A member of the RNA family "Eukaryotic large subunit ribosomal RNA" from Zancudomyces culisetae, 303 nucleotides of a longer RNA. The organism belongs to Zancudomyces, within Eukaryota.

RNA sequence: GAGUCCAACAUAUAUGCGAGUAUAUGGGAAUUUAAACCCACAUGCGUAAUGAAAGUGAAACAUUUUUGAGUGUGACCAAUUUCCUUUUGGAAGUUGAGCAACACCAACCGGCUUUAGAUAGCGUUGCUUGACAAAGCUGAGUAAGAGCAUAUAUGCUGGGACCCGAAAGAUGGUGAACUAUGCCUGAAUAGGGUGAAGUCAGAGGAAACUCUGAUGGAAGCUCGUAGAGAUUCUGACGUGCAAAUCGAUCUCCAAAUUUGGGUAUAGGGGCGAAAGACUAAUCGAACCAUCUAGUAGCUGGUU
Numbered sequence: 001g002a003g004u005c006c007a008a009c010a011u012a013u014a015u016g017c018g019a020g021u022a023u024a025u026g027g028g029a030a031u032u033u034a035a036a037c038c039c040a041c042a043u044g045c046g047u048a049a050u051g052a053a054a055g056u057g058a059a060a061c062a063u064u065u066u067u068g069a070g071u072g073u074g075a076c077c078a079a080u081u082u083c084c085u086u087u088u089g090g091a092a093g094u095u096g097a098g099c100a101a102c103a104c105c106a107a108c109c110g111g112c113u114u115u116a117g118a119u120a121g122c123g124u125u126g127c128u129u130g131a132c133a134a135a136g137c138u139g140a141g142u143a144a145g146a147g148c149a150u151a152u153a154u155g156c157u158g159g160g161a162c163c164c165g166a167a168a169g170a171u172g173g174u175g176a177a178c179u180a181u182g183c184c185u186g187a188a189u190a191g192g193g194u195g196a197a198g199u200c201a202g203a204g205g206a207a208a209c210u211c212u213g214a215u216g217g218a219a220g221c222u223c224g225u226a227g228a229g230a231u232u233c234u235g236a237c238g239u240g241c242a243a244a245u246c247g248a249u250c251u252c253c254a255a256a257u258u259u260g261g262g263u264a265u266a267g268g269g270g271c272g273a274a275a276g277a278c279u280a281a282u283c284g285a286a287c288c289a290u291c292u293a294g295u296a297g298c299u300g301g302u303u
Base pairs, nucleotide, nucleotide: 005159006158007157009155010154011153012152013151014150015149016148017147020045021044022043025040026039027038028037049056050055070104071103072102073101077096078095079094080093081092082091107142108141109139110138111137113134114133120128121127122126162301163300165298169291170290171289172288173287174286178267179266180265181264182263183262184261185260186259187258188257189255191223192222193221194220198215199214200213201212202211203210204209227252228251229250230249232248233247235246236245269279270278
Dot-bracket structure: ....(((.(((((((((..(((..((((........))))..)))...((....)).............((((...((((((........))))))....))))..(((((.((.....(((...)))....))..))).))....))))))))).)))..((.(...((((((...((((((((((((.((((...(((((((....)))))))....))))...((((.((.((........))))))))..).))))))))))).((.......))......))))))......).))..
Background:
Gene Ontology terms of the family: ribosome and structural constituent of ribosome.